[Rfam]
RNA: Small Cajal body specific RNA 8
RNA sequence: UGGGAGGCAGAUACCUGGGCAGGCCUGAGCGCCGGCCUGUCCGCCACGCGUCCUCCCGACAGCAUCGCUGCUCUCUGAUGACCGCGGCGAGUUGAGGGAAAUCGCCGCGGACAGAUACGGAGCAGACAGGC
Numbered sequence: 001u002g003g004g005a006g007g008c009a010g011a012u013a014c015c016u017g018g019g020c021a022g023g024c025c026u027g028a029g030c031g032c033c034g035g036c037c038u039g040u041c042c043g044c045c046a047c048g049c050g051u052c053c054u055c056c057c058g059a060c061a062g063c064a065u066c067g068c069u070g071c072u073c074u075c076u077g078a079u080g081a082c083c084g085c086g087g088c089g090a091g092u093u094g095a096g097g098g099a100a101a102u103c104g105c106c107g108c109g110g111a112c113a114g115a116u117a118c119g120g121a122g123c124a125g126a127c128a129g130g131c
Stems, first nucleotide, its partner, number of pairs: 002057006016043003022037004068125007082110003087105004